This 107-nucleotide RNA from Vulpes vulpes belongs to the Rfam family "mir-8834 microRNA precursor family". Lineage of the source: Eukaryota > Chordata > Vertebrata > Tetrapoda > Vulpes.
[Rfam]
RNA sequence: AGGAGGAACAAGCUCAGUGGUGGCGGCCAGCUCUGGAGCCAUGGAUUCAGCUCCCACAGUAACUACAGAGCUCUACAUCUGCAGGGGCCUGGAUGCUCCGGGGUCGG
Dot-bracket structure: .((((.(.((..((....((((..((..(((((((.(....((.............)).....).))))))))).))))....))....))..).))))........